[Rfam]
RNA sequence: UGACCUCGUACGGGAGAGACCUCGCCCCGCGCGGGCACGAGGCGCCGAAGGAGCAACUCCUCCCCGGAAUCUCUCAGGCACAGCGACCGUACGAGCGAG
Numbered sequence: 001u002g003a004c005c006u007c008g009u010a011c012g013g014g015a016g017a018g019a020c021c022u023c024g025c026c027c028c029g030c031g032c033g034g035g036c037a038c039g040a041g042g043c044g045c046c047g048a049a050g051g052a053g054c055a056a057c058u059c060c061u062c063c064c065c066g067g068a069a070u071c072u073c074u075c076a077g078g079c080a081c082a083g084c085g086a087c088c089g090u091a092c093g094a095g096c097g098a099g
Stems, first nucleotide, its partner, number of pairs: 006094008020042004044079003047075002051073003057067002

The family of this 99-nucleotide sequence from Carbonactinospora thermoautotrophica is "Glycine riboswitch aptamer". From the family's description: This family represents the bacterial glycine riboswitch. The base pairs follow the family's consensus structure.